[Rfam]
RNA sequence: UUGGAAAACAGAACGUUCACUCGUAUAUCCCGGUCGACAGGGGCCGGGGUUUCUACAGGAAACCGAUAAAUUUCCGGCUACGAGUCUCUUCCGCCUGGAG
Numbered sequence: 001u002u003g004g005a006a007a008a009c010a011g012a013a014c015g016u017u018c019a020c021u022c023g024u025a026u027a028u029c030c031c032g033g034u035c036g037a038c039a040g041g042g043g044c045c046g047g048g049g050u051u052u053c054u055a056c057a058g059g060a061a062a063c064c065g066a067u068a069a070a071u072u073u074c075c076g077g078c079u080a081c082g083a084g085u086c087u088c089u090u091c092c093g094c095c096u097g098g099a100g
Base pairs, nucleotide, nucleotide: 019085020084021083022082023081024080025079029048030047031046032045033044034043035042058075059074060073061072062071
A member of the RNA family "Purine riboswitch aptamer" from Salibacterium qingdaonense, 100 nucleotides long.
Rfam links the family to the GO term purine nucleobase biosynthetic process.